[Rfam]
Notes
The family of this 304-nucleotide sequence from Ipomoea nil is "Plant signal recognition particle RNA". The literature on the family includes a 2002 paper in Curr Opin Struct Biol by Wild et al., "Towards the structure of the mammalian signal recognition particle". The organism belongs to Ipomoea, within Eukaryota. The match comes from Rfam's covariance-model search (208 bits). The family is grouped with related families in Rfam's "SRP clan".
RNA sequence: GCUGGGCUUGGUAGCGUGAGCCUGUAACCUAAGUGGGAGCAUUAAGAUGGUGGAAUAGUUGGCCUUUCCCUGAAGGCUGGGCCUUGGUUGCUAUCUACUGGCUUGCCCGUUCCAAGUGGUGAGUUGUGCCAUAGACUCUCUACGAAGGCGUAGGGUUCUCGGUCCUUAGAUUGGAGGGCACCGCGUGAGGCUAGCUUCACAGAGCAGCGAAAACCUCCUCCUCUCUGUAGUGGAAGGAUAACGGGCCGGUGCAUCCUCUACCCACUAGCACCUGAUGGGCUGUCCAAAUUGAACCACCAUCUUU
Numbered sequence: 001g002c003u004g005g006g007c008u009u010g011g012u013a014g015c016g017u018g019a020g021c022c023u024g025u026a027a028c029c030u031a032a033g034u035g036g037g038a039g040c041a042u043u044a045a046g047a048u049g050g051u052g053g054a055a056u057a058g059u060u061g062g063c064c065u066u067u068c069c070c071u072g073a074a075g076g077c078u079g080g081g082c083c084u085u086g087g088u089u090g091c092u093a094u095c096u097a098c099u100g101g102c103u104u105g106c107c108c109g110u111u112c113c114a115a116g117u118g119g120u121g122a123g124u125u126g127u128g129c130c131a132u133a134g135a136c137u138c139u140c141u142a143c144g145a146a147g148g149c150g151u152a153g154g155g156u157u158c159u160c161g162g163u164c165c166u167u168a169g170a171u172u173g174g175a176g177g178g179c180a181c182c183g184c185g186u187g188a189g190g191c192u193a194g195c196u197u198c199a200c201a202g203a204g205c206a207g208c209g210a211a212a213a214c215c216u217c218c219u220c221c222u223c224u225c226u227g228u229a230g231u232g233g234a235a236g237g238a239u240a241a242c243g244g245g246c247c248g249g250u251g252c253a254u255c256c257u258c259u260a261c262c263c264a265c266u267a268g269c270a271c272c273u274g275a276u277g278g279g280c281u282g283u284c285c286a287a288a289u290u291g292a293a294c295c296a297c298c299a300u301c302u303u304u
Base pairs, nucleotide, nucleotide: 001040002039003038004023005022006021007020008019009018010017028037029036030035044303045302046301047300048299049298050297051296052295053294056291057290059288060287062284064282067279069278070277074273075272076271079263080262081261086256089253090252092251093250098249099248100247101246102245103244104243105242107237108236110235111234112233113232114231116228117227118226119225121223122222123221126165128163129162130161134157135156136155137154138153139152141150143148173218174217175216176215177214184209185208186207191202192201